[Rfam]
RNA sequence: CUAUAAAGCAUUGCACCCAGAGUCUGCCAGGCAGACACUGUACCUGGAGCUUUCUGUGUAUCCAGCUGUUUU
Numbered sequence: 001c002u003a004u005a006a007a008g009c010a011u012u013g014c015a016c017c018c019a020g021a022g023u024c025u026g027c028c029a030g031g032c033a034g035a036c037a038c039u040g041u042a043c044c045u046g047g048a049g050c051u052u053u054c055u056g057u058g059u060a061u062c063c064a065g066c067u068g069u070u071u072u
Base pairs, nucleotide, nucleotide: 005053006052007051008050009049017047018046019045020044022036023035024034025033026032
RNA: U1A polyadenylation inhibition element (PIE)